[Rfam]
RNA sequence: UGAGAUAGCUAAGUCAAUAUAUUGAGAUAGCUAAGUUAAUAUAUUGAGACAGCUAUCUCAAUAUAUUGACUUAGCUAUCUCAA
Numbered sequence: 001u002g003a004g005a006u007a008g009c010u011a012a013g014u015c016a017a018u019a020u021a022u023u024g025a026g027a028u029a030g031c032u033a034a035g036u037u038a039a040u041a042u043a044u045u046g047a048g049a050c051a052g053c054u055a056u057c058u059c060a061a062u063a064u065a066u067u068g069a070c071u072u073a074g075c076u077a078u079c080u081c082a083a
Stems, first nucleotide, its partner, number of pairs: 005078017023060009
RNA: mir-31 microRNA precursor family
Organism: Gymnodraco acuticeps